[Rfam]
RNA sequence: GCCAUGGGGUCCGCGAACGCCCCGUGAGGCUUCGGCCCAAGUGUCGCAUCCCCUCUGACCAGAUCGGAUGCCCAUG
Numbered sequence: 001g002c003c004a005u006g007g008g009g010u011c012c013g014c015g016a017a018c019g020c021c022c023c024g025u026g027a028g029g030c031u032u033c034g035g036c037c038c039a040a041g042u043g044u045c046g047c048a049u050c051c052c053c054u055c056u057g058a059c060c061a062g063a064u065c066g067g068a069u070g071c072c073c074a075u076g
Stems, first nucleotide, its partner, number of pairs: 005024006046071006
Source information:
Shown here is a 76-nucleotide sequence from Pseudorhodobacter sp. PARRP1, a member of the family "chrB-a RNA". It is annotated as a cis-regulatory element. The family's consensus secondary structure is taken from published work. It scores 63 bits against the family's covariance model. Rfam 15.1 lists 347 matches to the family in 339 species.